[Rfam]
RNA sequence: GAUGUGUUGUUGCAAUAGUAAUCCUGCUCAGUACGAGAGGAACCGCAGGUUCAGACAUUUGGUGUGUGUGCUUGGCUGAGGAGCCAAUGGUGCGAAGCUACCAUCUGUGGGAUUAUGACUGAACGCCUCUAAGUCAGAAUCCCCCCUAGACGUGACGAUACCAUAGCGCCGCGGACCUCCGGUUGGCCACGGAUAGCCGGCUUCGGCCGGUGGGCAGGGCCGCUCGAGACGGGGCCGGGGCGCGGCCGGACGAUGGCCGCCCCUCUCCCACCUCGCACCGCAUGUUUGUGGAGAAUCCGGUGCUAAAUCACUUGCAGACGACCUGAUUCUGGGUCAGGGUGUCGUGAGUAGCAGAGCAGCUCCCUCGCUGCGAUCUACUGAAAGUCAGCCCUCGAUCCAAGCUUUUGU
Numbered sequence: 001g002a003u004g005u006g007u008u009g010u011u012g013c014a015a016u017a018g019u020a021a022u023c024c025u026g027c028u029c030a031g032u033a034c035g036a037g038a039g040g041a042a043c044c045g046c047a048g049g050u051u052c053a054g055a056c057a058u059u060u061g062g063u064g065u066g067u068g069u070g071c072u073u074g075g076c077u078g079a080g081g082a083g084c085c086a087a088u089g090g091u092g093c094g095a096a097g098c099u100a101c102c103a104u105c106u107g108u109g110g111g112a113u114u115a116u117g118a119c120u121g122a123a124c125g126c127c128u129c130u131a132a133g134u135c136a137g138a139a140u141c142c143c144c145c146c147u148a149g150a151c152g153u154g155a156c157g158a159u160a161c162c163a164u165a166g167c168g169c170c171g172c173g174g175a176c177c178u179c180c181g182g183u184u185g186g187c188c189a190c191g192g193a194u195a196g197c198c199g200g201c202u203u204c205g206g207c208c209g210g211u212g213g214g215c216a217g218g219g220c221c222g223c224u225c226g227a228g229a230c231g232g233g234g235c236c237g238g239g240g241c242g243c244g245g246c247c248g249g250a251c252g253a254u255g256g257c258c259g260c261c262c263c264u265c266u267c268c269c270a271c272c273u274c275g276c277a278c279c280g281c282a283u284g285u286u287u288g289u290g291g292a293g294a295a296u297c298c299g300g301u302g303c304u305a306a307a308u309c310a311c312u313u314g315c316a317g318a319c320g321a322c323c324u325g326a327u328u329c330u331g332g333g334u335c336a337g338g339g340u341g342u343c344g345u346g347a348g349u350a351g352c353a354g355a356g357c358a359g360c361u362c363c364c365u366c367g368c369u370g371c372g373a374u375c376u377a378c379u380g381a382a383a384g385u386c387a388g389c390c391c392u393c394g395a396u397c398c399a400a401g402c403u404u405u406u407g408u
Stems, first nucleotide, its partner, number of pairs: 006159008016148003021051001023049005052107004060100003067094005072087006109143003116136005168301003173298003305406003311325001314322001331398005337391003342383001348378004353374001356371005
This 408-nucleotide part of an RNA from Gasterosteus aculeatus belongs to the Rfam family "Eukaryotic large subunit ribosomal RNA".
The family's consensus secondary structure is taken from published work.
The sequence is in the family's curated seed alignment.
On this family, see Yusupov et al., Science 2001: "Crystal structure of the ribosome at 5.5 A resolution".
Its family is annotated with ribosome and structural constituent of ribosome in the Gene Ontology.
The organism belongs to Gasterosteus, within Eukaryota.